Overview: This 93-nucleotide RNA sequence from Caloenas nicobarica belongs to the Rfam family "Small nucleolar RNA SNORD91 family".
RNA sequence: GCAGGAAGCCUGUGAUGUCUGAGCCGUGGUGUCUGAACCUGGCUGGAGGAUUCUUCUGAAGAUGCAUCCUUAGGCUCUGAGGCUUCCAGGGGA
Dot-bracket structure: ...(((((((......................................................................)))))))......
It is annotated as a C/D-box small nucleolar RNA. It scores 55 bits against the family's covariance model.